[Rfam]
RNA sequence: AUUUCAUUUUCUUCGAACUGAGUCAUUGAUGUGUUCUUGUAUAAUGCUAAGAAUAUUCUUUGACUUUGGUUUGAAGAACUAUAUGCAAU
Numbered sequence: 001a002u003u004u005c006a007u008u009u010u011c012u013u014c015g016a017a018c019u020g021a022g023u024c025a026u027u028g029a030u031g032u033g034u035u036c037u038u039g040u041a042u043a044a045u046g047c048u049a050a051g052a053a054u055a056u057u058c059u060u061u062g063a064c065u066u067u068g069g070u071u072u073g074a075a076g077a078a079c080u081a082u083a084u085g086c087a088a089u
Stems, first nucleotide, its partner, number of pairs: 001089003005085003009081001010077009020066006028058002031056009

The record is an 89-nucleotide RNA from Haemonchus placei, which matches "mir-5886 microRNA precursor family" in Rfam. Lineage of the source: Eukaryota > Metazoa > Protostomia > Strongyloidea > Haemonchus. Rfam links the family to the GO terms RISC complex and miRNA-mediated post-transcriptional gene silencing. Pairs were carried over by alignment from the consensus structure, which was predicted with RNAalifold.